[Rfam]
RNA sequence: UUUUCAGUAUACAUAUAUCCCAUGCAAUAUUUGGGACAUAAUUAUACUAAAC
Numbered sequence: 001u002u003u004u005c006a007g008u009a010u011a012c013a014u015a016u017a018u019c020c021c022a023u024g025c026a027a028u029a030u031u032u033g034g035g036a037c038a039u040a041a042u043u044a045u046a047c048u049a050a051a052c
Stems, first nucleotide, its partner, number of pairs: 006048006014040003018036004022031001
The record is a 52-nucleotide sequence from Myotis davidii, which matches "mir-1302 microRNA precursor family" in Rfam. The family has 24 seed sequences and 16,160 matches in Rfam 15.1. Rfam links the family to the GO terms RISC complex and miRNA-mediated post-transcriptional gene silencing. The match comes from Rfam's covariance-model search (63 bits).